A member of the RNA family "sucA-II RNA" from Pseudomonas benzenivorans, 211 nucleotides long. The family's consensus secondary structure is taken from published work. Rfam classes the family as a cis-regulatory element.
[Rfam]
RNA sequence: CUGCGGCGCCGCCGGCGCCGUAGUUUUAGCCAGAGCUGCAGCUCACAAAGCCGCGGUUCUUAUUUGAAAAAUUUGACGACCAGCAGGGGCAUCCGGGCUGGUGCCCGGACUAUCUGCGGGAUCCGUGGUGGCUUUACCGAAGUCGCUGCUUCAGACUUCGGAAGCCCAGGCGGGUUCUUCGCCGGUGGUGUCCCCUUACCGAGGGUGACCA
Numbered sequence: 001c002u003g004c005g006g007c008g009c010c011g012c013c014g015g016c017g018c019c020g021u022a023g024u025u026u027u028a029g030c031c032a033g034a035g036c037u038g039c040a041g042c043u044c045a046c047a048a049a050g051c052c053g054c055g056g057u058u059c060u061u062a063u064u065u066g067a068a069a070a071a072u073u074u075g076a077c078g079a080c081c082a083g084c085a086g087g088g089g090c091a092u093c094c095g096g097g098c099u100g101g102u103g104c105c106c107g108g109a110c111u112a113u114c115u116g117c118g119g120g121a122u123c124c125g126u127g128g129u130g131g132c133u134u135u136a137c138c139g140a141a142g143u144c145g146c147u148g149c150u151u152c153a154g155a156c157u158u159c160g161g162a163a164g165c166c167c168a169g170g171c172g173g174g175u176u177c178u179u180c181g182c183c184g185g186u187g188g189u190g191u192c193c194c195c196u197u198a199c200c201g202a203g204g205g206u207g208a209c210c211a
Stems, first nucleotide, its partner, number of pairs: 001023010033059004038054002041051003085196005090190002092109006110188005116182003120177002122174003129168003132164003137160001141157004
Taxonomically the source falls in Pseudomonas (Bacteria, Pseudomonadati, Pseudomonadota, Pseudomonadaceae). The match comes from Rfam's covariance-model search (166 bits).